[Rfam]
RNA sequence: GAAACAAUAGUUUAAUGGGAAAAACAUUUCGAGCGGAGAAAAGUUACAGGUUCGAUCCCUGUUUGUUUCU
Numbered sequence: 001g002a003a004a005c006a007a008u009a010g011u012u013u014a015a016u017g018g019g020a021a022a023a024a025c026a027u028u029u030c031g032a033g034c035g036g037a038g039a040a041a042a043g044u045u046a047c048a049g050g051u052u053c054g055a056u057c058c059c060u061g062u063u064u065g066u067u068u069c070u
Base pairs, nucleotide, nucleotide: 001069002068003067004066005065006064007063010025011024012023013022027041028040029039030038046062047061048060049059050058
RNA: tRNA
Organism: Chryseobacterium hagamense